The family of this 63-nucleotide RNA from Pedobacter sp. PACM 27299 is "DUF805 RNA". It scores 56 bits against the family's covariance model. Lineage of the source: Bacteria > Bacteroidota > Sphingobacteriales > Sphingobacteriaceae > Pedobacter.
[Rfam]
RNA sequence: UUGGCUUGGAGCAGCGACCAAUAAAAACGGGCGACCCCGAAAAGCCAGAUGAGUAGGAAAUAA
Numbered sequence: 001u002u003g004g005c006u007u008g009g010a011g012c013a014g015c016g017a018c019c020a021a022u023a024a025a026a027a028c029g030g031g032c033g034a035c036c037c038c039g040a041a042a043a044g045c046c047a048g049a050u051g052a053g054u055a056g057g058a059a060a061u062a063a
Stems, first nucleotide, its partner, number of pairs: 006021004030046003037057002